[Rfam]
RNA sequence: CCUUUAUCCUAUGACGGCGUCCCCUGAAACCAAACUAUUUGUGAGGGGGGUACCCGAUGCUCUGUAAAUG
Number, nucleotide and partner (000 for none) at each position: 001c070002c000003u068004u067005u066006a000007u000008c000009c000010u000011a000012u000013g000014a000015c000016g054017g053018c000019g051020u050021c049022c048023c047024c046025u045026g000027a000028a000029a000030c000031c041032a040033a039034a000035c000036u000037a000038u000039u033040u032041g031042u000043g000044a000045g025046g024047g023048g022049g021050g020051u019052a000053c017054c016055c000056g000057a000058u000059g000060c000061u000062c000063u000064g000065u000066a005067a004068a003069u000070g001
The family of this 70-nucleotide RNA from Muraenolepis orangiensis is "Selenocysteine insertion sequence 1".
Its family is annotated with selenocysteine incorporation in the Gene Ontology.
The organism belongs to Muraenolepis, within Eukaryota.